RNA: Guanidine-II riboswitch aptamer (mini-ykkC)
RNA sequence: CCGCCGGGACGACCCGACGGAGAGAUCACAGGUGGGGACGGCCCC
Numbered sequence: 001c002c003g004c005c006g007g008g009a010c011g012a013c014c015c016g017a018c019g020g021a022g023a024g025a026u027c028a029c030a031g032g033u034g035g036g037g038a039c040g041g042c043c044c045c
Base pairs, nucleotide, nucleotide: 001020002019003018005016006015007014008013034045035044036043037042